A member of the RNA family "c-di-AMP riboswitch aptamer (ydaO/yuaA leader)" from Streptomyces sp. MS191, 118 nucleotides long. Pairs were carried over by alignment from the consensus structure. Lineage of the source: Bacteria > Actinomycetes > Kitasatosporales > Streptomycetaceae > Streptomyces.
RNA sequence: AGUACGGAACGGCCGGCCAGUGGGGCCGUUCCUUGGGGUGAAGCCGCAGCCGCGGCCGGGCAACUUCGCCAGUCCGAACCCGACAGGUCAUCCUUCACAGGCGGCUGACGAAGGGUUG
Number, nucleotide and partner (000 for none) at each position: 001a000002g000003u019004a000005c000006g000007g000008a000009a000010c000011g000012g000013c000014c000015g000016g000017c000018c000019a003020g098021u097022g096023g095024g094025g093026c000027c035028g034029u000030u000031c000032c000033u000034u028035g027036g081037g080038g079039u000040g000041a000042a000043g000044c055045c054046g053047c052048a000049g000050c000051c000052g047053c046054g045055g044056c000057c000058g075059g074060g073061c072062a000063a000064c000065u000066u000067c000068g000069c000070c000071a000072g061073u060074c059075c058076g000077a000078a000079c038080c037081c036082g000083a000084c000085a000086g000087g000088u000089c000090a000091u000092c000093c025094u024095u023096c022097a021098c020099a000100g000101g000102c000103g000104g000105c000106u000107g000108a000109c000110g000111a000112a000113g000114g000115g000116u000117u000118g000